Shown here is a 96-nucleotide RNA sequence from Vanilla planifolia, a member of the family "Small nucleolar RNA Z157/R69/R10". The literature on the family includes a 2003 paper in Nucleic Acids Res by Chen et al., "The high diversity of snoRNAs in plants: identification and comparative study of 120 snoRNA genes from Oryza sativa". Its Rfam clan is "SNORD52 clan". The source organism's lineage runs through Eukaryota, Streptophytina, Magnoliopsida, Petrosaviidae and Vanilla. The base pairs follow the family's consensus structure, which was predicted with PFOLD. Rfam 15.1 lists 836 matches to the family in 232 species. The match comes from Rfam's covariance-model search (62 bits).
RNA sequence: AGGGUUGCUGUGAGGAGGCUGAUAUUGGACUAGAGUUUCUGAUCUGGUCUUUGUACCAGAAGCUGAAGACUAACCCUUGGCUGUCUGAGCAAAAAG
Dot-bracket structure: ....((((...........................((((...((((((......))))).)...))))....................))))....
Numbered sequence: 001a002g003g004g005u006u007g008c009u010g011u012g013a014g015g016a017g018g019c020u021g022a023u024a025u026u027g028g029a030c031u032a033g034a035g036u037u038u039c040u041g042a043u044c045u046g047g048u049c050u051u052u053g054u055a056c057c058a059g060a061a062g063c064u065g066a067a068g069a070c071u072a073a074c075c076c077u078u079g080g081c082u083g084u085c086u087g088a089g090c091a092a093a094a095a096g
Stems, first nucleotide, its partner, number of pairs: 005092004036068004043061001044059005